A member of the RNA family "Glutamine riboswitch aptamer (glnA leader)", 63 nucleotides long.

[Rfam]
RNA sequence: UACGUUCAUCUCAACACAUUGUUGGGACGCAAGUAAGCAAGUUAAGUGCUGAAGGAACGGGAA
Numbered sequence: 001u002a003c004g005u006u007c008a009u010c011u012c013a014a015c016a017c018a019u020u021g022u023u024g025g026g027a028c029g030c031a032a033g034u035a036a037g038c039a040a041g042u043u044a045a046g047u048g049c050u051g052a053a054g055g056a057a058c059g060g061g062a063a
Base pairs, nucleotide, nucleotide: 003059004058005057006056007055009027010026011025012024013023014022015021016020030060036050037049038048